[Rfam]
RNA: Group II catalytic intron D1-D4-2
Organism: Marinobacter sp. ELB17
RNA sequence: GGAGGAACCGAACGCCGGAGUCUGCCUGCUGGGACUAGCUCCAAACCACCCUGAACGGCAUUGGCUGAAGACCGUUGCCGUAAGCAUCGGGGGAAAGGCUCACUCAGGUGGUGUGUCAGGC
Numbered sequence: 001g002g003a004g005g006a007a008c009c010g011a012a013c014g015c016c017g018g019a020g021u022c023u024g025c026c027u028g029c030u031g032g033g034a035c036u037a038g039c040u041c042c043a044a045a046c047c048a049c050c051c052u053g054a055a056c057g058g059c060a061u062u063g064g065c066u067g068a069a070g071a072c073c074g075u076u077g078c079c080g081u082a083a084g085c086a087u088c089g090g091g092g093g094a095a096a097g098g099c100u101c102a103c104u105c106a107g108g109u110g111g112u113g114u115g116u117c118a119g120g121c
Base pairs, nucleotide, nucleotide: 001016002015004013017042018041019040020039021038024035026033027032047120049092050091051090052089053088054087055081056080058078059077060076062074063073064072097117098116099115101113102112
Dot-bracket structure: ((.(........).))(((((..(.((....)).)..)))))....(.((((((((.(((.(((.......))).))).)).....))))))....(((.((.........)).)))..).